This 84-nucleotide RNA sequence from Neomoorella thermoacetica belongs to the Rfam family "c-di-GMP-I-GGC riboswitch aptamer". Gene Ontology term of the family: cyclic-di-GMP binding. The family's consensus secondary structure is taken from published work. NCBI's taxonomy places the organism under Bacteria, Bacillati, Neomoorellales, Neomoorellaceae, Neomoorella.
Nucleotides: 084
Stems, first nucleotide, its partner, number of pairs: 003081001011036002016031006034070001039077004044073003047068003
Number, partner (000 for none) and nucleotide at each position: 001000c002000g003081u004000a005000u006000g007000a008000a009000g010000g011036g012035c013000a014000a015000a016031c017030c018029u019028g020027g021026c022000g023000a024000a025000a026021g027020c028019c029018a030017g031016g032000g033000a034070c035012g036011c037000a038000a039077a040076g041075c042074c043000a044073c045072g046071g047068g048067c049066c050000u051000g052000u053000c054000g055000a056000u057000g058000c059000u060000u061000u062000c063000c064000a065000u066049g067048g068047c069000u070034g071046c072045c073044g074042g075041g076040c077039u078000g079000c080000c081003g082000g083000g084000a